[Rfam]
RNA: Bacterial RNase P class A
Organism: Mucilaginibacter segetis
RNA sequence: AAUGCAAAACGUUCUAUCGCUGUUUGCCCUAAAGCGAACGGAGGAAAGUCCGGGCAACACAGAGCAUCCUGCUUCCUAACAGGAAGGCGCCGGCAGCCGGCGACAGCAAGUGCCACAGAAAAUAUACCGCCCGGGAUUUAUCGCGGGUAAGGGUGAAAACGUGAGGUAAGAGCUCACGGCUUUUCCGGGCGACCGGGAUCGCGGUAAACCUCAGGAGUUGAAAGACCAAAUAGGUUCUGGAUCAGGAGUUGCUCGCUCCCGUGUAAUUGUUAGCAAUUACCUUCAGAAUGGGUAGGUUGAUUAAACCUGUCAGCAAUGGCAGGGCCAGAUUAAUGAUAGAAGUUCUCCUUACGGGGAAUACAGAACCCGGCUUACAGAUUUGCUGCUGCA
Numbered sequence: 001a002a003u004g005c006a007a008a009a010c011g012u013u014c015u016a017u018c019g020c021u022g023u024u025u026g027c028c029c030u031a032a033a034g035c036g037a038a039c040g041g042a043g044g045a046a047a048g049u050c051c052g053g054g055c056a057a058c059a060c061a062g063a064g065c066a067u068c069c070u071g072c073u074u075c076c077u078a079a080c081a082g083g084a085a086g087g088c089g090c091c092g093g094c095a096g097c098c099g100g101c102g103a104c105a106g107c108a109a110g111u112g113c114c115a116c117a118g119a120a121a122a123u124a125u126a127c128c129g130c131c132c133g134g135g136a137u138u139u140a141u142c143g144c145g146g147g148u149a150a151g152g153g154u155g156a157a158a159a160c161g162u163g164a165g166g167u168a169a170g171a172g173c174u175c176a177c178g179g180c181u182u183u184u185c186c187g188g189g190c191g192a193c194c195g196g197g198a199u200c201g202c203g204g205u206a207a208a209c210c211u212c213a214g215g216a217g218u219u220g221a222a223a224g225a226c227c228a229a230a231u232a233g234g235u236u237c238u239g240g241a242u243c244a245g246g247a248g249u250u251g252c253u254c255g256c257u258c259c260c261g262u263g264u265a266a267u268u269g270u271u272a273g274c275a276a277u278u279a280c281c282u283u284c285a286g287a288a289u290g291g292g293u294a295g296g297u298u299g300a301u302u303a304a305a306c307c308u309g310u311c312a313g314c315a316a317u318g319g320c321a322g323g324g325c326c327a328g329a330u331u332a333a334u335g336a337u338a339g340a341a342g343u344u345c346u347c348c349u350u351a352c353g354g355g356g357a358a359u360a361c362a363g364a365a366c367c368c369g370g371c372u373u374a375c376a377g378a379u380u381u382g383c384u385g386c387u388g389c390a
Stems, first nucleotide, its partner, number of pairs: 004383005010377001011375001012341007020041008046373003050370005055220004062277001067216005072086005087104001088102004105211002110209002112205003127152002129148005135142002160178006183198006224298004234289006269281001271279002306323007